[Rfam]
Actinobacteria sRNA Ms_IGR-5: a 227-nucleotide sequence from Streptomyces sp. YIM 130001. Lineage of the source: Bacteria > Bacillati > Actinomycetota > Kitasatosporales > Streptomyces. The family's RNA type in Rfam is small RNA.
RNA sequence: CAACCGGAAGGGAGGUGGUUCGGAAGUGAUGACAUACCGGACAGGUGAGGUGGCUGCGGGCUAGCAGCCUGCCACCGUAGAACCAGUGCGGUGCCGGACCAGCGCGCGAUGCAUGUGCGCAGCCGGCCCAAUCCCAAGCAGUCACCCGACCCGCGGGCCGCCGGUAUUGUCCGGCCGGCUCCCCGCCGUUUCGUACGGCGGGGACCAAGGCCCGCGGGUCGUCUGCG
Numbered sequence: 001c002a003a004c005c006g007g008a009a010g011g012g013a014g015g016u017g018g019u020u021c022g023g024a025a026g027u028g029a030u031g032a033c034a035u036a037c038c039g040g041a042c043a044g045g046u047g048a049g050g051u052g053g054c055u056g057c058g059g060g061c062u063a064g065c066a067g068c069c070u071g072c073c074a075c076c077g078u079a080g081a082a083c084c085a086g087u088g089c090g091g092u093g094c095c096g097g098a099c100c101a102g103c104g105c106g107c108g109a110u111g112c113a114u115g116u117g118c119g120c121a122g123c124c125g126g127c128c129c130a131a132u133c134c135c136a137a138g139c140a141g142u143c144a145c146c147c148g149a150c151c152c153g154c155g156g157g158c159c160g161c162c163g164g165u166a167u168u169g170u171c172c173g174g175c176c177g178g179c180u181c182c183c184c185g186c187c188g189u190u191u192c193g194u195a196c197g198g199c200g201g202g203g204a205c206c207a208a209g210g211c212c213c214g215c216g217g218g219u220c221g222u223c224u225g226c227g
Base pairs, nucleotide, nucleotide: 015057016056017055018054019053059128060127061126062125064123065122067120068119070117071116072115147221148220149219150218151217152216153215154214155213156212157211158210159209160179161178162177163176164175165174